[Rfam]
Background:
This 65-nucleotide sequence belongs to the Rfam family "S15-Halobacteria ribosomal protein leader".

RNA sequence: UUUGGGAACACACGGCCGCAAAUCUGACUACGCCGCCGAUUGGCGGCUUGAGAUUGCGGUGGUGU
Numbered sequence: 001u002u003u004g005g006g007a008a009c010a011c012a013c014g015g016c017c018g019c020a021a022a023u024c025u026g027a028c029u030a031c032g033c034c035g036c037c038g039a040u041u042g043g044c045g046g047c048u049u050g051a052g053a054u055u056g057c058g059g060u061g062g063u064g065u
Base pairs, nucleotide, nucleotide: 010065011064012063013062015060016059017058018057019056020055021054024052025051032047033046034045035044036043037042

The literature on the family includes a 2020 paper in BMC Microbiol by Eckert and Weinberg, "Discovery of 20 novel ribosomal leader candidates in bacteria and archaea". Clan: Ribosomal Protein S15 Leader clan.